About this RNA:
Rfam assigns this 105-nucleotide RNA sequence from Propionispora sp. 2/2-37 to the family "SAM riboswitch aptamer (S box leader)".
[Rfam]
RNA sequence: CACUCAUCAAGAGCAGGUGGAGGGAAUGGCCCGAUGAAACCGCGGCAACCGUUAGUUUUUACUGACAAGGUGCCAAUUCCUGUGGCAUUUGCUACAAGAUGGGAG
Numbered sequence: 001c002a003c004u005c006a007u008c009a010a011g012a013g014c015a016g017g018u019g020g021a022g023g024g025a026a027u028g029g030c031c032c033g034a035u036g037a038a039a040c041c042g043c044g045g046c047a048a049c050c051g052u053u054a055g056u057u058u059u060u061a062c063u064g065a066c067a068a069g070g071u072g073c074c075a076a077u078u079c080c081u082g083u084g085g086c087a088u089u090u091g092c093u094a095c096a097a098g099a100u101g102g103g104a105g
Stems, first nucleotide, its partner, number of pairs: 001105001003103006013043002016041003022032003028080002044074004049070002051066004078097001083094004